Annotation: Shown here is a 420-nucleotide part of an RNA from Acaromyces ingoldii, a member of the family "Eukaryotic large subunit ribosomal RNA". Rfam links the family to the GO terms ribosome and structural constituent of ribosome. The organism belongs to Acaromyces, within Eukaryota. A search with the family's covariance model found it, with a score of 3356 bits.
[Rfam]
RNA sequence: CAACCUCAAAUCAGGUAGGACUACCCGCUGAACUUAAGCAUAUCAAUAAGCGGAGGAAAAGAAACUAACAAGGAUUCCCCUAGUAACGGCGAGUGAAGCGGGAUGAGCUCAAAUUUGAAAGCUGGCCUCACGGUCCGCAUUGUAAUUUCGAGAGAUGUUUUCCGCGUUGGACCACGUACAAGUCUCCUGGAAAGGAGUGUCAUAGAGGGUGAUAACCCCGUACUUGAUGUGGACGCCCAAGGCUUUGUGAUACAUCUUCGACGAGUCGAGUUGUUUGGGAAUGCAGCUCCAAAUGGGUGGUAAAUUCCAUCUAAAGCUAAAUAUUGGGGAGAGACCGAUAGCGAACAAGUACCGUGAGGGAAAGAUGAAAAGCACUUUGGAAAGAGAGUUAAACAGUACGUGAAAUUGUCAAAAGGGAAG
Numbered sequence: 001c002a003a004c005c006u007c008a009a010a011u012c013a014g015g016u017a018g019g020a021c022u023a024c025c026c027g028c029u030g031a032a033c034u035u036a037a038g039c040a041u042a043u044c045a046a047u048a049a050g051c052g053g054a055g056g057a058a059a060a061g062a063a064a065c066u067a068a069c070a071a072g073g074a075u076u077c078c079c080c081u082a083g084u085a086a087c088g089g090c091g092a093g094u095g096a097a098g099c100g101g102g103a104u105g106a107g108c109u110c111a112a113a114u115u116u117g118a119a120a121g122c123u124g125g126c127c128u129c130a131c132g133g134u135c136c137g138c139a140u141u142g143u144a145a146u147u148u149c150g151a152g153a154g155a156u157g158u159u160u161u162c163c164g165c166g167u168u169g170g171a172c173c174a175c176g177u178a179c180a181a182g183u184c185u186c187c188u189g190g191a192a193a194g195g196a197g198u199g200u201c202a203u204a205g206a207g208g209g210u211g212a213u214a215a216c217c218c219c220g221u222a223c224u225u226g227a228u229g230u231g232g233a234c235g236c237c238c239a240a241g242g243c244u245u246u247g248u249g250a251u252a253c254a255u256c257u258u259c260g261a262c263g264a265g266u267c268g269a270g271u272u273g274u275u276u277g278g279g280a281a282u283g284c285a286g287c288u289c290c291a292a293a294u295g296g297g298u299g300g301u302a303a304a305u306u307c308c309a310u311c312u313a314a315a316g317c318u319a320a321a322u323a324u325u326g327g328g329g330a331g332a333g334a335c336c337g338a339u340a341g342c343g344a345a346c347a348a349g350u351a352c353c354g355u356g357a358g359g360g361a362a363a364g365a366u367g368a369a370a371a372g373c374a375c376u377u378u379g380g381a382a383a384g385a386g387a388g389u390u391a392a393a394c395a396g397u398a399c400g401u402g403a404a405a406u407u408g409u410c411a412a413a414a415g416g417g418a419a420g
Stems, first nucleotide, its partner, number of pairs: 024055001025053005035042002065072002076103004086094002106318004112147004118141002121138002124135004152259002154256004159252001161250002164243002167240004172232006182198001184197004201205001208218002268289007295312005352359002375386004